[Rfam]
RNA sequence: UCCGAUGAUGGCAUGGAAUCUUUGAGACCUGAUUGUCUUGUGACUUGAUGACAAUUACAAGCAUUUUUUGGCUGAGGAU
Numbered sequence: 001u002c003c004g005a006u007g008a009u010g011g012c013a014u015g016g017a018a019u020c021u022u023u024g025a026g027a028c029c030u031g032a033u034u035g036u037c038u039u040g041u042g043a044c045u046u047g048a049u050g051a052c053a054a055u056u057a058c059a060a061g062c063a064u065u066u067u068u069u070g071g072c073u074g075a076g077g078a079u
Base pairs, nucleotide, nucleotide: 001078002077003076032046033043034042